[Rfam]
Overview
The record is a 146-nucleotide RNA from Vicugna pacos, which matches "small Cajal body-specific RNA 17" in Rfam. The source organism's lineage runs through Eukaryota, Vertebrata, Dipnotetrapodomorpha, Amniota and Vicugna. By type it is a small Cajal body RNA. On this family, see Tycowski et al., Curr Biol 2004: "Guide RNAs with 5' Caps and Novel Box C/D snoRNA-like Domains for Modification of snRNAs in Metazoa". scaRNAs are a specific class of small nuclear RNAs which localise to the Cajal bodies and guide the modification of RNA polymerase II transcribed spliceosomal RNAs U1, U2, U4, U5 and U12. The complete human U12-22/U4-8 scaRNA is composed of two tandem C/D box domains (termed U12-22 and U4-8). Its family is annotated with Cajal body, RNA processing and nucleolus in the Gene Ontology. Pairs were carried over by alignment from the consensus structure, which is taken from published work.

RNA sequence: CUCUGGGGUUCCCGAUGCAGCCCCCGUAUGAAGCCACAGUAUUUUCCUUAUAUGAUUGGGCCCCAUUGCUGGCGGCGCCGCUGGCCCGGAGCCUGAGAGGAUUAUGAAAACGUGUGUCCGGCGGAGUGGGGCCAGAGAACCCGGGG
Numbered sequence: 001c002u003c004u005g006g007g008g009u010u011c012c013c014g015a016u017g018c019a020g021c022c023c024c025c026g027u028a029u030g031a032a033g034c035c036a037c038a039g040u041a042u043u044u045u046c047c048u049u050a051u052a053u054g055a056u057u058g059g060g061c062c063c064c065a066u067u068g069c070u071g072g073c074g075g076c077g078c079c080g081c082u083g084g085c086c087c088g089g090a091g092c093c094u095g096a097g098a099g100g101a102u103u104a105u106g107a108a109a110a111c112g113u114g115u116g117u118c119c120g121g122c123g124g125a126g127u128g129g130g131g132c133c134a135g136a137g138a139a140c141c142c143g144g145g146g
Base pairs, nucleotide, nucleotide: 001146002145003144006142007141008140009139010138011137013135020132021131022130023129024128056096057095058094059093060092061091063089064088068085069084070083071082072081073080074079